[Rfam]
RNA: c-di-AMP riboswitch aptamer (ydaO/yuaA leader)
Organism: Paractinoplanes rishiriensis
RNA sequence: CCGCGCCACCCGCUCCGGUGGCGACGUACGGGGCAACCUCGGGGUGAAGCCGCAUUACGCGGCCGGGCAACCUUCCCGCCCGAACCCGACAGCUAACCUCGCAGGCGUGCCGGAGGGAUUCC
Numbered sequence: 001c002c003g004c005g006c007c008a009c010c011c012g013c014u015c016c017g018g019u020g021g022c023g024a025c026g027u028a029c030g031g032g033g034c035a036a037c038c039u040c041g042g043g044g045u046g047a048a049g050c051c052g053c054a055u056u057a058c059g060c061g062g063c064c065g066g067g068c069a070a071c072c073u074u075c076c077c078g079c080c081c082g083a084a085c086c087c088g089a090c091a092g093c094u095a096a097c098c099u100c101g102c103a104g105g106c107g108u109g110c111c112g113g114a115g116g117g118a119u120u121c122c
Base pairs, nucleotide, nucleotide: 005106006105007104011026012025029101030100031099032098033097042087043086044085050062051061052060053059065081066080067079068078